Shown here is a 113-nucleotide sequence from Pantoea ananatis, a member of the family "RtT RNA". NCBI's taxonomy places the organism under Bacteria, Pseudomonadota, Gammaproteobacteria, Enterobacterales, Pantoea ananatis. On this family, see Bosl and Kersten, Nucleic Acids Res 1991: "A novel RNA product of the tyrT operon of Escherichia coli".
[Rfam]
RNA sequence: CCAUCUUCUUCGGGGAGAGGGAUGAGAACCUUCGAUCAAGGUUCGGGUCGAGCAUCGCGAGACAACGCGCAUCAGCGCGGCCCGCAGGGUGAAAUCAUCCUCUUGAACCCGCU
Numbered sequence: 001c002c003a004u005c006u007u008c009u010u011c012g013g014g015g016a017g018a019g020g021g022a023u024g025a026g027a028a029c030c031u032u033c034g035a036u037c038a039a040g041g042u043u044c045g046g047g048u049c050g051a052g053c054a055u056c057g058c059g060a061g062a063c064a065a066c067g068c069g070c071a072u073c074a075g076c077g078c079g080g081c082c083c084g085c086a087g088g089g090u091g092a093a094a095u096c097a098u099c100c101u102c103u104u105g106a107a108c109c110c111g112c113u
Stems, first nucleotide, its partner, number of pairs: 015104004020100002023097001033091002036089002042086001044084002049059002066079005